[Rfam]
Nucleotides: 052
Stems, first nucleotide, its partner, number of pairs: 006048001008046001010044003014040003018036003022031001
Number, partner (000 for none) and nucleotide at each position: 001000u002000u003000u004000u005000a006048a007000a008046u009000a010044u011043a012042a013000g014040u015039a016038u017000g018036u019035c020034u021000c022031a023000u024000g025000c026000a027000a028000u029000a030000u031022u032000u033000a034020g035019g036018a037000g038016a039015u040014a041000c042012u043011u044010a045000c046008a047000c048006u049000a050000a051000a052000a